This 119-nucleotide RNA sequence from Raineyella antarctica belongs to the Rfam family "mraW RNA". The base pairs follow the family's consensus structure, which is taken from published work.
RNA sequence: GACCGGCCGUACGGCCUGGCCCCGACCCGAGGGGUGAGCACCCUGACACAACUUCCCCUGUGUCAGGUGGCACUUCCCGCACCUUUCGGGGCGGAACCAGGGCGUACGGCCGCCGCCAC
Numbered sequence: 001g002a003c004c005g006g007c008c009g010u011a012c013g014g015c016c017u018g019g020c021c022c023c024g025a026c027c028c029g030a031g032g033g034g035u036g037a038g039c040a041c042c043c044u045g046a047c048a049c050a051a052c053u054u055c056c057c058c059u060g061u062g063u064c065a066g067g068u069g070g071c072a073c074u075u076c077c078c079g080c081a082c083c084u085u086u087c088g089g090g091g092c093g094g095a096a097c098c099a100g101g102g103c104g105u106a107c108g109g110c111c112g113c114c115g116c117c118a119c
Stems, first nucleotide, its partner, number of pairs: 010106004015101002018098002022094003026090009038071002042067008